[Rfam]
Source information:
A member of the RNA family "Bacterial small signal recognition particle RNA" from Sphingomonas changbaiensis, 98 nucleotides long. Rfam classes the family as a non-coding RNA gene.

RNA sequence: CGCGGGAGUCGGGCGGACGUAGCAUUCGCCAACCCGGUCAGGUCCGGAAGGAAGCAGCCGCAACGAACACGCUGCGGGUCGUUCCGGCUCCCACCGCG
Numbered sequence: 001c002g003c004g005g006g007a008g009u010c011g012g013g014c015g016g017a018c019g020u021a022g023c024a025u026u027c028g029c030c031a032a033c034c035c036g037g038u039c040a041g042g043u044c045c046g047g048a049a050g051g052a053a054g055c056a057g058c059c060g061c062a063a064c065g066a067a068c069a070c071g072c073u074g075c076g077g078g079u080c081g082u083u084c085c086g087g088c089u090c091c092c093a094c095c096g097c098g
Stems, first nucleotide, its partner, number of pairs: 004092005011084005018076006025067004035060004043052003
The base pairs follow the family's consensus structure, which is taken from published work.